The record is a 286-nucleotide RNA from Methylovorus glucosotrophus, which matches "5' ureB small RNA" in Rfam.
The match comes from Rfam's covariance-model search (143 bits).
The source organism's lineage runs through Bacteria, Pseudomonadati, Nitrosomonadales, Methylovorus and Methylovorus glucosotrophus.
RNA sequence: CUUCUUCAAUCUGUUGCGGGCAAAUGAAAUGGAUAUGUGUAUCAAUGCCGCCAGCGGUCACGAUCAUGCCUUCGCCGGCAAUGACUUCAGUGGCGGCGCCAAUGGCAAUGGUGACGCCAGGCUGGAUAUCGGGAUUACCCGCCUUGCCAAUCGCGGCGAUACGGCCGGCUUUGAUGGCAAUAUCGGCCUUGAUGAUGCCGGUGUAGUCCACAAUCAGGGCAUUGGUGAUCACCGUGUCGGCUACCUCGGCCGCGACACGCUGGCCCUGGCCCAUGCCAUCGCGUAU
Number, nucleotide and partner (000 for none) at each position: 001c000002u000003u285004c000005u283006u000007c281008a000009a279010u000011c000012u158013g157014u156015u155016g154017c153018g076019g075020g000021c000022a072023a071024a000025u000026g000027a000028a000029a000030u053031g052032g051033a000034u050035a000036u000037g048038u047039g046040u045041a000042u000043c000044a000045a040046u039047g038048c037049c000050g034051c032052c031053a030054g000055c000056g000057g069058u068059c000060a000061c000062g000063a000064u000065c000066a000067u000068g058069c057070c000071u023072u022073c000074g000075c019076c018077g148078g147079c000080a000081a144082u000083g142084a000085c000086u000087u000088c000089a000090g138091u137092g136093g135094c000095g130096g129097c000098g000099c125100c124101a000102a123103u119104g000105g117106c116107a000108a000109u000110g000111g000112u000113g000114a000115c000116g106117c105118c000119a103120g000121g000122c000123u102124g100125g099126a000127u000128a000129u096130c095131g000132g000133g000134a000135u093136u092137a091138c090139c000140c000141g000142c083143c000144u081145u000146g000147c078148c077149a000150a000151u000152c000153g017154c016155g015156g014157c013158g012159a000160u000161a000162c000163g000164g270165c269166c268167g267168g000169c000170u000171u263172u262173g261174a000175u259176g258177g256178c000179a000180a000181u000182a000183u000184c000185g000186g220187c219188c218189u217190u216191g215192a000193u000194g000195a000196u000197g000198c000199c000200g209201g208202u000203g000204u000205a000206g000207u000208c201209c200210a000211c000212a000213a000214u000215c191216a190217g189218g188219g187220c186221a000222u000223u255224g000225g253226u000227g000228a000229u000230c000231a246232c000233c000234g244235u243236g242237u000238c000239g000240g000241c000242u236243a235244c234245c000246u231247c000248g000249g000250c000251c000252g000253c225254g000255a223256c177257a000258c176259g175260c000261u173262g172263g171264c000265c000266c000267u167268g166269g165270c164271c000272c000273a000274u000275g000276c000277c000278a000279u009280c000281g007282c000283g005284u000285a003286u000